[Rfam]
RNA: Small nucleolar RNA SNORA79
Organism: Hydra vulgaris
Nucleotides: 140
Stems, first nucleotide, its partner, number of pairs: 001055006007048001013042005019036003067132006079119003082115005088106005
Number, partner (000 for none) and nucleotide at each position: 001055u002054g003053g004052u005051g006050a007048u008000g009000u010000u011000c012000c013042u014041u015040a016039u017038g018000c019036a020035u021034u022000g023000c024000u025000a026000a027000g028000u029000u030000u031000a032000a033000a034021a035020a036019u037000g038017u039016a040015u041014a042013a043000u044000u045000u046000u047000a048007a049000g050006u051005c052004a053003c054002c055001a056000u057000a058000a059000a060000a061000a062000a063000u064000u065000u066000a067132a068131a069130a070129c071128a072127u073000u074000u075000u076000c077000a078000c079119c080118c081117a082115a083114g084113u085112a086111a087000g088106u089105u090104u091103c092102a093000a094000c095000u096000a097000g098000u099000g100000g101000u102092u103091g104090a105089a106088a107000a108000a109000u110000g111086u112085u113084a114083c115082u116000c117081u118080g119079g120000u121000a122000u123000u124000u125000g126000c127072a128071u129070g130069u131068u132067u133000u134000a135000a136000c137000a138000u139000c140000u